[Rfam]
RNA sequence: UCCAUCGUGAGGUGGAAUCUGAAGGAAGCGGUAGGCAAAAUCUCGGUCUGAUGAACAAAAACCAGAUAAGAGGCUGAAUUGGGGCGGACGAGUUUGCAAAACAAAACGAAGUCCAACACUACCCGAACCCCAUACAGUAAAUUGUUAUACAGCAAAUUAU
Numbered sequence: 001u002c003c004a005u006c007g008u009g010a011g012g013u014g015g016a017a018u019c020u021g022a023a024g025g026a027a028g029c030g031g032u033a034g035g036c037a038a039a040a041u042c043u044c045g046g047u048c049u050g051a052u053g054a055a056c057a058a059a060a061a062c063c064a065g066a067u068a069a070g071a072g073g074c075u076g077a078a079u080u081g082g083g084g085c086g087g088a089c090g091a092g093u094u095u096g097c098a099a100a101a102c103a104a105a106a107c108g109a110a111g112u113c114c115a116a117c118a119c120u121a122c123c124c125g126a127a128c129c130c131c132a133u134a135c136a137g138u139a140a141a142u143u144g145u146u147a148u149a150c151a152g153c154a155a156a157u158u159a160u
Stems, first nucleotide, its partner, number of pairs: 001016006040157002043154001046150002049147002063144002066142002073138003078133002081131004086114004092107004
Overview
The record is a 160-nucleotide sequence from Thermoanaerobacterium sp. RBIITD, which matches "Group II catalytic intron D1-D4-3" in Rfam. The match comes from Rfam's covariance-model search (106 bits). Group II introns are found in rRNA, tRNA and mRNA of organelles in fungi, plants and protists, and also in mRNA in bacteria. Lineage of the source: Bacteria > Bacillati > Thermoanaerobacterales > Thermoanaerobacteraceae > Thermoanaerobacterium.